[Rfam]
RNA sequence: GUCAUCAGACGAAACUGGUUUUCACAGUGAUUUGACAGAUGUAUUUAACUCUGAGAUCAUUGUGAAAGCUGAUUUUGUUCA
Numbered sequence: 001g002u003c004a005u006c007a008g009a010c011g012a013a014a015c016u017g018g019u020u021u022u023c024a025c026a027g028u029g030a031u032u033u034g035a036c037a038g039a040u041g042u043a044u045u046u047a048a049c050u051c052u053g054a055g056a057u058c059a060u061u062g063u064g065a066a067a068g069c070u071g072a073u074u075u076u077g078u079u080c081a
Stems, first nucleotide, its partner, number of pairs: 009078006016071010028059006
Dot-bracket structure: ........((((((.((((((((((..((((((....................))))))..)))))))))).))))))...